This 77-nucleotide RNA sequence from Papaver somniferum belongs to the Rfam family "small nucleolar RNA snoR117".

[Rfam]
RNA sequence: AGUCAAUGAUGUUGGAAUUUGUCCGUACCAUCUGAGCUCUGAUCUUUGACGAGACUUUUUACAAAUUUGUGAGGCUA
Number, nucleotide and partner (000 for none) at each position: 001a076002g075003u074004c073005a000006a000007u000008g000009a000010u000011g000012u000013u000014g000015g000016a000017a000018u000019u000020u000021g000022u000023c000024c000025g000026u000027a000028c000029c000030a000031u000032c000033u000034g000035a000036g000037c000038u000039c000040u000041g000042a000043u000044c000045u000046u000047u000048g000049a000050c000051g000052a000053g000054a000055c000056u000057u000058u000059u000060u000061a000062c000063a000064a000065a000066u000067u000068u000069g000070u000071g000072a000073g004074g003075c002076u001077a000

Lineage of the source: Eukaryota > Embryophyta > Euphyllophyta > Magnoliopsida > Papaver.
On this family, see Chen and Wu, Nucleic Acids Res 2009: "Mining small RNA sequencing data: a new approach to identify small nucleolar RNAs in Arabidopsis".
By type it is a C/D-box small nucleolar RNA.
Its family is annotated with RNA processing and nucleolus in the Gene Ontology.
It scores 51 bits against the family's covariance model.